[Rfam]
RNA sequence: AGGGCAGUAUCAACCGGAACUGCACCUGCAAGAAACAACAACAACUCAAUAAUAUCUGCCUUGAUCUUGUGAAAGACAGGGACGGAGGA
Numbered sequence: 001a002g003g004g005c006a007g008u009a010u011c012a013a014c015c016g017g018a019a020c021u022g023c024a025c026c027u028g029c030a031a032g033a034a035a036c037a038a039c040a041a042c043a044a045c046u047c048a049a050u051a052a053u054a055u056c057u058g059c060c061u062u063g064a065u066c067u068u069g070u071g072a073a074a075g076a077c078a079g080g081g082a083c084g085g086a087g088g089a
Stems, first nucleotide, its partner, number of pairs: 001027003004023005010018002056085003059081005065076003
Shown here is an 89-nucleotide RNA from Sporosarcina luteola, a member of the family "pan motif". By type it is a cis-regulatory element. The match comes from Rfam's covariance-model search (60 bits).